[Rfam]
RNA sequence: GUGCCACCACAACGGCUUCCUGGCGUGGUGGCUAAACCCCAAUGGAGCA
Numbered sequence: 001g002u003g004c005c006a007c008c009a010c011a012a013c014g015g016c017u018u019c020c021u022g023g024c025g026u027g028g029u030g031g032c033u034a035a036a037c038c039c040c041a042a043u044g045g046a047g048c049a
Stems, first nucleotide, its partner, number of pairs: 004031007013022002015048003019045002